[Rfam]
RNA sequence: CAGUGCUACAUCUCCUCUAGAAUUUGUCUAGCAGGUUUUCUGGUCUGCACAAGGAAGCCCCA
Dot-bracket structure: .................................((((((((.((....)).))))))))...
U7 small nuclear RNA: a 62-nucleotide RNA from Sus scrofa. About the family: Animal histone pre-mRNAs are spliced by a different mechanism than nuclear pre-mRNAs and self-splicing introns. This processing involves the U7 snRNP, which contains only one RNA species: U7. The 5' end of U7 RNA is thought to base-pair to a conserved spacer element downstream of the cleavage site in histone pre-mRNA. This family contains a number of annotated U7 pseudogenes.